[Rfam]
RNA: Plant small nucleolar RNA U3
Nucleotides: 218
Base pairs, nucleotide, nucleotide: 001038002037003035005033006032007031013027014026015025016024017023018022044068045067046066048064049063050062051061052060077217078216079215080214081213096205097204098203099202100201101200102199103198104197105196106195107194109168110167111166112165119157120156121155122154123153124152126148127147128146129145130144131142133140134139169192170191171190172189173187174186175185176184177183
Number, partner (000 for none) and nucleotide at each position: 001038a002037c003035g004000a005033c006032c007031u008000u009000a010000c011000u012000u013027g014026a015025a016024c017023a018022g019000g020000a021000u022018c023017u024016g025015u026014u027013c028000u029000a030000u031007a032006g033005g034000a035003u036000c037002g038001u039000a040000c041000c042000a043000c044068u045067g046066c047000a048064u049063c050062c051061u052060u053000u054000a055000c056000c057000a058000a059000c060052a061051a062050g063049g064048a065000g066046g067045c068044a069000a070000g071000c072000a073000c074000u075000a076000a077217g078216u079215c080214u081213g082000g083000u084000u085000g086000a087000u088000g089000a090000u091000c092000c093000a094000g095000a096205a097204c098203c099202u100201c101200u102199g103198g104197g105196c106195c107194a108000g109168a110167g111166c112165g113000u114000g115000a116000u117000u118000g119157a120156c121155g122154g123153c124152u125000a126148g127147g128146a129145u130144g131142c132000u133140c134139c135000g136000g137000a138000a139134g140133g141000u142131g143000c144130c145129a146128u147127c148126u149000g150000a151000c152124g153123g154122c155121u156120g157119u158000g159000g160000a161000g162000g163000a164000u165112c166111g167110u168109u169192c170191c171190u172189g173187c174186u175185a176184g177183g178000c179000c180000u181000g182000u183177c184176c185175u186174g187173g188000u189172u190171a191170g192169g193000g194107u195106g196105g197104c198103u199102c200101a201100g202099a203098g204097g205096u206000u207000g208000u209000c210000u211000g212000a213081c214080a215079g216078a217077c218000u